[Rfam]
RNA sequence: GCUUUUCCUCCCACUCCCACGGGCGUAGGUUACAGAGAAGCCCGUGGGCUCUGGGGGAAGAGC
Numbered sequence: 001g002c003u004u005u006u007c008c009u010c011c012c013a014c015u016c017c018c019a020c021g022g023g024c025g026u027a028g029g030u031u032a033c034a035g036a037g038a039a040g041c042c043c044g045u046g047g048g049c050u051c052u053g054g055g056g057g058a059a060g061a062g063c
Stems, first nucleotide, its partner, number of pairs: 001063004008057006018046002022042003025033002
Shown here is a 63-nucleotide RNA sequence from Sapayoa aenigma, a member of the family "MAT2A 3'UTR stem loop A". Taxonomically the source falls in Sapayoa (Eukaryota, Eumetazoa, Craniata, Tyrannidae). Rfam 15.1 lists 595 matches to the family in 507 species. Rfam classes the family as a cis-regulatory element. For this family Rfam cites "New families of human regulatory RNA structures identified by comparative analysis of vertebrate genomes" (Parker et al., Genome Res, 2011). A search with the family's covariance model found it, with a score of 48 bits.